[Rfam]
RNA sequence: UCCCUUGCGCAGCGCCCCCCCGGCCCCUAUAUUCACCCUGUUCGGGCUUGCCCGGACUAUGGCGAUAAACGCACCUGUAAUAAACGGCUCGGACCCGGGGGCGGUACCCGGCGACUCCACCAUUCCACCCGCUCAUUUCGGGGGUUCGGGGUCGAAAUAGGAUCGACGAACGUCUAAAGAGGCCAGCUUUCGCUCGGUGAGGUACCACCGUUAUCGGUCCGAAACGUACAGUUGCAAAUGACAACCGUGCUCCGAUGGCAAUGGCCGCGUAAGCGACCGGAACUAUCGAAAACUAAGCCCUUGCACCUAGCAGUGUAAGGCGGGGCCCGGAGGAGCCUGGCAACAGAAUCCUCCACU
Numbered sequence: 001u002c003c004c005u006u007g008c009g010c011a012g013c014g015c016c017c018c019c020c021c022g023g024c025c026c027c028u029a030u031a032u033u034c035a036c037c038c039u040g041u042u043c044g045g046g047c048u049u050g051c052c053c054g055g056a057c058u059a060u061g062g063c064g065a066u067a068a069a070c071g072c073a074c075c076u077g078u079a080a081u082a083a084a085c086g087g088c089u090c091g092g093a094c095c096c097g098g099g100g101g102c103g104g105u106a107c108c109c110g111g112c113g114a115c116u117c118c119a120c121c122a123u124u125c126c127a128c129c130c131g132c133u134c135a136u137u138u139c140g141g142g143g144g145u146u147c148g149g150g151g152u153c154g155a156a157a158u159a160g161g162a163u164c165g166a167c168g169a170a171c172g173u174c175u176a177a178a179g180a181g182g183c184c185a186g187c188u189u190u191c192g193c194u195c196g197g198u199g200a201g202g203u204a205c206c207a208c209c210g211u212u213a214u215c216g217g218u219c220c221g222a223a224a225c226g227u228a229c230a231g232u233u234g235c236a237a238a239u240g241a242c243a244a245c246c247g248u249g250c251u252c253c254g255a256u257g258g259c260a261a262u263g264g265c266c267g268c269g270u271a272a273g274c275g276a277c278c279g280g281a282a283c284u285a286u287c288g289a290a291a292a293c294u295a296a297g298c299c300c301u302u303g304c305a306c307c308u309a310g311c312a313g314u315g316u317a318a319g320g321c322g323g324g325g326c327c328c329g330g331a332g333g334a335g336c337c338u339g340g341c342a343a344c345a346g347a348a349u350c351c352u353c354c355a356c357u
Base pairs, nucleotide, nucleotide: 040057041056042055043054044053045052046051061194062193063192064191065190071187072186074182075181076180085172086171089169090168091167095111096110097109098108099107112154113153114152115151116150117149118148195210196209197208198207201220202219204218205217206216323338324337325336326335329354330353331352332351333350334349